Group II catalytic intron D1-D4-3: a 173-nucleotide RNA sequence.
Gene Ontology term of the family: Group II intron splicing.
From the family's description: Group II introns are found in rRNA, tRNA and mRNA of organelles in fungi, plants and protists, and also in mRNA in bacteria.
Rfam's curators put it in the seed alignment.
RNA sequence: UCCCGGGUGACCGGGAAUCUGAAGGAAGCCGUAGGCAAACAUUUGUUGUGACGCACAGAAACCGGAUAUAAGGCCUGUUCUCCUGGGUAACUGACCACUGAAUCAGGAAGCCCGAUAGUCAUUCGGAAAGGAGGGGGGGUAAAUCCGGCGCAAUGAAUGGAAAGAUUUACUAC
Numbered sequence: 001u002c003c004c005g006g007g008u009g010a011c012c013g014g015g016a017a018u019c020u021g022a023a024g025g026a027a028g029c030c031g032u033a034g035g036c037a038a039a040c041a042u043u044u045g046u047u048g049u050g051a052c053g054c055a056c057a058g059a060a061a062c063c064g065g066a067u068a069u070a071a072g073g074c075c076u077g078u079u080c081u082c083c084u085g086g087g088u089a090a091c092u093g094a095c096c097a098c099u100g101a102a103u104c105a106g107g108a109a110g111c112c113c114g115a116u117a118g119u120c121a122u123u124c125g126g127a128a129a130g131g132a133g134g135g136g137g138g139g140u141a142a143a144u145c146c147g148g149c150g151c152a153a154u155g156a157a158u159g160g161a162a163a164g165a166u167u168u169a170c171u172a173c
Base pairs, nucleotide, nucleotide: 001016002015003014004013005012006011028173031170032169035166036164040159041158042157043156044155045154046153047152048151049150050149062148063147064146065145066144067143073140074139075138079134080133081132082131083130084129085113086112087111088110091106092105093104094103